Nucleotides: 110
Stems, first nucleotide, its partner, number of pairs: 001013005032077002036073001043068005051062003079106003083102005
Number, partner (000 for none) and nucleotide at each position: 001013g002012c003011g004010u005009a006000u007000u008000a009005u010004g011003c012002g013001c014000c015000c016000c017000g018000a019000u020000u021000u022000u023000u024000u025000c026000a027000c028000c029000a030000g031000a032077a033076g034000g035000a036073c037000a038000c039000a040000c041000a042000c043068u044067u045066u046065g047064g048000a049000c050000a051062g052061u053060c054000a055000c056000a057000g058000u059000c060053g061052a062051u063000a064047c065046c066045g067044a068043a069000u070000a071000u072000c073036g074000c075000a076033c077032u078000a079106g080105a081104c082000u083102c084101c085100g086099c087098c088000u089000g090000a091000a092000u093000u094000u095000a096000u097000c098087g099086g100085c101084g102083g103000c104081g105080u106079c107000g108000c109000c110000g
Rfam assigns this 110-nucleotide RNA from Parahaemophilus pittmaniae to the family "Aggregatibacter sRNA 54".
The family's RNA type in Rfam is small RNA.
The organism belongs to Parahaemophilus, within Bacteria.
It scores 71 bits against the family's covariance model.
From the family's description: Validated by RT-PCR, expression up-regulated during growth.